[Rfam]
Nucleotides: 135
Stems, first nucleotide, its partner, number of pairs: 002054008014040008026031001064131004070123004079107001080105009
Number, partner (000 for none) and nucleotide at each position: 001000a002054g003053c004052a005051c006050u007049u008048g009047u010000c011000c012000u013000u014040g015039u016038c017037u018036u019035u020034g021033u022000u023000g024000a025000a026031c027000u028000g029000a030000u031026g032000g033021a034020c035019a036018a037017a038016g039015a040014c041000u042000u043000a044000a045000a046000u047009a048008c049007a050006g051005g052004u053003g054002c055000a056000a057000a058000a059000a060000u061000a062000a063000a064131u065130c066129c067128u068000c069000u070123g071122u072121u073120a074000c075000a076000a077000c078000c079107c080105a081104g082103a083102g084101c085100u086099c087098a088097u089000u090000g091000u092000u093000a094000a095000g096000u097088a098087u099086g100085a101084g102083c103082u104081u105080u106000u107079g108000c109000g110000g111000c112000g113000a114000a115000c116000c117000c118000c119000c120073u121072g122071a123070c124000c125000a126000g127000c128067a129066g130065g131064a132000g133000a134000a135000g
The record is a 135-nucleotide RNA from Jaculus jaculus, which matches "Small nucleolar RNA SNORA40" in Rfam. NCBI's taxonomy places the organism under Eukaryota, Craniata, Mammalia, Boreoeutheria, Jaculus. The literature on the family includes a 1997 paper in J Mol Biol by Ofengand and Bakin, "Mapping to nucleotide resolution of pseudouridine residues in large subunit ribosomal RNAs from representative eukaryotes, prokaryotes, archaebacteria, mitochondria and chloroplasts". Rfam's curators write: The snoRNA ACA 40 belongs to the H/ACA family of snoRNAs and guides the pseudouridylation of 28S rRNA subunit at position U4565. NB This family has a high threshold value to exclude a large number of closely related sequences that do not appear to have conserved H and ACA boxes, and may be pseudogenes.